[Rfam]
RNA sequence: UACUUUUGCGCCUCGAUUACCAAAGUGGUAGUCUGUACAUAAAAAUCAUUUAAAUAAUAUUGGAAUG
Numbered sequence: 001u002a003c004u005u006u007u008g009c010g011c012c013u014c015g016a017u018u019a020c021c022a023a024a025g026u027g028g029u030a031g032u033c034u035g036u037a038c039a040u041a042a043a044a045a046u047c048a049u050u051u052a053a054a055u056a057a058u059a060u061u062g063g064a065a066u067g
Base pairs, nucleotide, nucleotide: 015033016032017031018030019029020028021027

Source information: S15-Flavobacteria ribosomal protein leader: a 67-nucleotide sequence. The family's RNA type in Rfam is cis-regulatory leader. Its Rfam clan is "Ribosomal Protein S15 Leader clan". A reference for the family is Eckert and Weinberg (2020), "Discovery of 20 novel ribosomal leader candidates in bacteria and archaea", BMC Microbiol.